[Rfam]
RNA sequence: AUCCAAGGUGAUUCCCUCUCCCAGGGGCCAGCUAGUGCCCCUUUCAGGAAAAUAGCAACUUGGAAGAAAGUCGGGCAUCCCUGGAGUCACUUGGGACAGGAGAUUCUUAUUUGUUUUACCUUCCUUUGGCUGCCGACAGGC
Numbered sequence: 001a002u003c004c005a006a007g008g009u010g011a012u013u014c015c016c017u018c019u020c021c022c023a024g025g026g027g028c029c030a031g032c033u034a035g036u037g038c039c040c041c042u043u044u045c046a047g048g049a050a051a052a053u054a055g056c057a058a059c060u061u062g063g064a065a066g067a068a069a070g071u072c073g074g075g076c077a078u079c080c081c082u083g084g085a086g087u088c089a090c091u092u093g094g095g096a097c098a099g100g101a102g103a104u105u106c107u108u109a110u111u112u113g114u115u116u117u118a119c120c121u122u123c124c125u126u127u128g129g130c131u132g133c134c135g136a137c138a139g140g141c
Stems, first nucleotide, its partner, number of pairs: 002064006009057002019049003023042006073133001075131001078129002083124003094111002

Annotation:
This 141-nucleotide sequence from Chinchilla lanigera belongs to the Rfam family "Small nucleolar RNA SNORA67". Taxonomically the source falls in Chinchilla (Eukaryota, Euteleostomi, Mammalia, Eutheria). It scores 128 bits against the family's covariance model. Pairs were carried over by alignment from the consensus structure, which was predicted with RNAalifold. Gene Ontology terms of the family: RNA processing and nucleolus. About the family: U67 belongs to the H/ACA class of snoRNAs which are thought to guide the sites of modification of uridines to pseudouridines.